[Rfam]
RNA: poplar-1 RNA
RNA sequence: UUUGAGCCGAGGGGCCUAGCGGAAACGCCAGAUUGGCGCUAAUCAGAAACGUUAGCAAGUGAGCCCGCAUCUUCGUUGUAAUCUGAUAACGACGGGAUGAGAUACUGUGUCCAUCGCAAGGGACACGUCAGAUAGUAGCAAA
Numbered sequence: 001u002u003u004g005a006g007c008c009g010a011g012g013g014g015c016c017u018a019g020c021g022g023a024a025a026c027g028c029c030a031g032a033u034u035g036g037c038g039c040u041a042a043u044c045a046g047a048a049a050c051g052u053u054a055g056c057a058a059g060u061g062a063g064c065c066c067g068c069a070u071c072u073u074c075g076u077u078g079u080a081a082u083c084u085g086a087u088a089a090c091g092a093c094g095g096g097a098u099g100a101g102a103u104a105c106u107g108u109g110u111c112c113a114u115c116g117c118a119a120g121g122g123a124c125a126c127g128u129c130a131g132a133u134a135g136u137a138g139c140a141a142a
Stems, first nucleotide, its partner, number of pairs: 012066004019056002031044005068099002071096001073095004083131004103137004108125005